The family of this 86-nucleotide RNA sequence from Pectinatus cerevisiiphilus is "pan motif". The family's consensus secondary structure is taken from published work. The organism belongs to Pectinatus, within Bacteria. By type it is a cis-regulatory element.
RNA sequence: UGAACAGUAUCAUAUUGAACUGUAUCACGAUAUAAGCUGUUUUGUUAUUUUUAUAUCGCUUGGAUCAUUAUGACCGAGACGAACGC
Numbered sequence: 001u002g003a004a005c006a007g008u009a010u011c012a013u014a015u016u017g018a019a020c021u022g023u024a025u026c027a028c029g030a031u032a033u034a035a036g037c038u039g040u041u042u043u044g045u046u047a048u049u050u051u052u053a054u055a056u057c058g059c060u061u062g063g064a065u066c067a068u069u070a071u072g073a074c075c076g077a078g079a080c081g082a083a084c085g086c
Base pairs, nucleotide, nucleotide: 001027002026003025004023005022006021007020008019010018011017056082057081058080059078060077061076062075063074065073066072067071